[Rfam]
RNA sequence: GGAUCCGAGGAGCGUUGCAGCGCACCCCCGACACUGGUCGGCGAGGAGCGUGAGGCUCGGAACAUCAUUGCAACGACGCUCAUCCACU
Numbered sequence: 001g002g003a004u005c006c007g008a009g010g011a012g013c014g015u016u017g018c019a020g021c022g023c024a025c026c027c028c029c030g031a032c033a034c035u036g037g038u039c040g041g042c043g044a045g046g047a048g049c050g051u052g053a054g055g056c057u058c059g060g061a062a063c064a065u066c067a068u069u070g071c072a073a074c075g076a077c078g079c080u081c082a083u084c085c086a087c088u
Stems, first nucleotide, its partner, number of pairs: 002063001004061005021050003025046002
SAH (S-adenosyl-L-homocysteine) riboswitch aptamer: an 88-nucleotide RNA sequence from Hydrogenophaga crassostreae. Gene Ontology terms of the family: S-adenosylhomocysteine metabolic process and regulation of gene expression. Pairs were carried over by alignment from the consensus structure, which is taken from published work. Lineage of the source: Bacteria > Pseudomonadati > Pseudomonadota > Betaproteobacteria > Hydrogenophaga.